[Rfam]
RNA sequence: UUGCGUGUUGGGUGGAGAUGCACCGCCGUCGGUUUGCGUAGCAAAGGCUUUCAUAGACGCUUAGAUUCCGUCCGCUACCGCUUGGCUGAUUCCUCCUCCCUGACCUGUUAGCCGCGACCCUUGCUGAGGGCUGUGGCAGGAGACGUCGUCGCGAUGCCGGCCCUGUUGGCCUGACACCGCUGGACACUGGAGUGCCUUACAACCAUUCCUGACGCGCCUGACACCGACUGCGAAAGUCGUGUUUGCCGAACGCCGUUUCCGGUGGCAACGGAAACCGA
Numbered sequence: 001u002u003g004c005g006u007g008u009u010g011g012g013u014g015g016a017g018a019u020g021c022a023c024c025g026c027c028g029u030c031g032g033u034u035u036g037c038g039u040a041g042c043a044a045a046g047g048c049u050u051u052c053a054u055a056g057a058c059g060c061u062u063a064g065a066u067u068c069c070g071u072c073c074g075c076u077a078c079c080g081c082u083u084g085g086c087u088g089a090u091u092c093c094u095c096c097u098c099c100c101u102g103a104c105c106u107g108u109u110a111g112c113c114g115c116g117a118c119c120c121u122u123g124c125u126g127a128g129g130g131c132u133g134u135g136g137c138a139g140g141a142g143a144c145g146u147c148g149u150c151g152c153g154a155u156g157c158c159g160g161c162c163c164u165g166u167u168g169g170c171c172u173g174a175c176a177c178c179g180c181u182g183g184a185c186a187c188u189g190g191a192g193u194g195c196c197u198u199a200c201a202a203c204c205a206u207u208c209c210u211g212a213c214g215c216g217c218c219u220g221a222c223a224c225c226g227a228c229u230g231c232g233a234a235a236g237u238c239g240u241g242u243u244u245g246c247c248g249a250a251c252g253c254c255g256u257u258u259c260c261g262g263u264g265g266c267a268a269c270g271g272a273a274a275c276c277g278a
Stems, first nucleotide, its partner, number of pairs: 014096004023088001025086004030080003036075003040049003056072004097141002100139003144214004148185003151180003159171004189209006221244001223242002225239004255275007